[Rfam]
About this RNA:
Shown here is a 67-nucleotide RNA sequence from Leptomonas pyrrhocoris, a member of the family "Trypanosomatid snoRNA TB11Cs5H2". A reference for the family is Myslyuk et al. (2008), "Psiscan: a computational approach to identify H/ACA-like and AGA-like non-coding RNA in trypanosomatid genomes", BMC Bioinformatics. Gene Ontology terms of the family: RNA processing and nucleolus.
RNA sequence: AUGCUGCAUCAGUACAGCGACGCCAUCUCACAACAAAUGGUGGCGCCUGCUGGCGAUGUCAGCUAGA
Numbered sequence: 001a002u003g004c005u006g007c008a009u010c011a012g013u014a015c016a017g018c019g020a021c022g023c024c025a026u027c028u029c030a031c032a033a034c035a036a037a038u039g040g041u042g043g044c045g046c047c048u049g050c051u052g053g054c055g056a057u058g059u060c061a062g063c064u065a066g067a
Base pairs, nucleotide, nucleotide: 003063004062006059007058008057009056015052016051017050018049019048022044023043024042025041026040027039